The family of this 124-nucleotide sequence from Candidatus Symbiopectobacterium sp. Dall1.0 is "TPP riboswitch aptamer (THI element)".
Rfam describes the family as follows. Vitamin B(1) in its active form thiamin pyrophosphate (TPP) is an essential coenzyme that is synthesised by coupling of pyrimidine and thiazole moieties in bacteria.
The organism belongs to Symbiopectobacterium, within Bacteria.
The base pairs follow the family's consensus structure, which is taken from published work.
For this family Rfam cites "Thiamine derivatives bind messenger RNAs directly to regulate bacterial gene expression" (Winkler et al., Nature, 2002).
RNA sequence: CGUAUCUUGUCGGAGUGCCUAGCGUGUUUAUGUCCUACAUAAACAGCAGGCUGAGACCGUUUAUUCGGGAUCCGCGGAACCUGAUCAGGUUAAAACCUGCGAAGGGAACAAGAGUAAUCCAUUC
Dot-bracket structure: .....(((((((((.(((((...........................))))......((......)))..)))).....(((...((((......))))...)))..)))))............